[Rfam]
RNA sequence: AUCAGAGUAGGAAAUAAAGCGUUAAGUGCUAGAGGGAUGGGAUGUUGCCCUUUGGACGAAAGACUUGGUUUGGUCUACGGUUUUAUUUUCGCAUUCGCUGCA
Numbered sequence: 001a002u003c004a005g006a007g008u009a010g011g012a013a014a015u016a017a018a019g020c021g022u023u024a025a026g027u028g029c030u031a032g033a034g035g036g037a038u039g040g041g042a043u044g045u046u047g048c049c050c051u052u053u054g055g056a057c058g059a060a061a062g063a064c065u066u067g068g069u070u071u072g073g074u075c076u077a078c079g080g081u082u083u084u085a086u087u088u089u090c091g092c093a094u095u096c097g098c099u100g101c102a
Stems, first nucleotide, its partner, number of pairs: 003100003010090010020079003026057002029055008040096005061076004
Shown here is a 102-nucleotide sequence from Enterococcus hermanniensis, a member of the family "THF (Tetrahydrofolate) riboswitch aptamer". Pairs were carried over by alignment from the consensus structure, which is taken from published work. For this family Rfam cites "A eubacterial riboswitch class that senses the coenzyme tetrahydrofolate" (Ames et al., Chem Biol, 2010). From the family's description: Tetrahydrofolate (THF) riboswitch was first reported for Ames et al. as an RNA motif in 5' untranslated (5'-UTR)regions of folate transport and biosynthesis genes in Firmicutes genomes.